[Rfam]
Rfam assigns this 98-nucleotide sequence from Nothoprocta perdicaria to the family "Vault RNA". The literature on the family includes a 2009 paper in Mol Biol Evol by Stadler et al., "Evolution of Vault RNAs". The family's consensus secondary structure is taken from published work.
RNA sequence: GGGCCGGCUUUAGCCCAGCGGUUACUUCGGCAAUUUGCGUCCUGCUCGCAACUUCGCCCCGACUGGGGUUCGAUCCCGCGGGUACCCCUGGCCCUUUU
Numbered sequence: 001g002g003g004c005c006g007g008c009u010u011u012a013g014c015c016c017a018g019c020g021g022u023u024a025c026u027u028c029g030g031c032a033a034u035u036u037g038c039g040u041c042c043u044g045c046u047c048g049c050a051a052c053u054u055c056g057c058c059c060c061g062a063c064u065g066g067g068g069u070u071c072g073a074u075c076c077c078g079c080g081g082g083u084a085c086c087c088c089u090g091g092c093c094c095u096u097u098u
Stems, first nucleotide, its partner, number of pairs: 002093006013083004018079004027073004

Rfam classes the family as a non-coding RNA gene. The source organism's lineage runs through Eukaryota, Teleostomi, Dipnotetrapodomorpha, Sauropsida and Nothoprocta. This family of RNAs are found as part of the enigmatic vault ribonucleoprotein complex.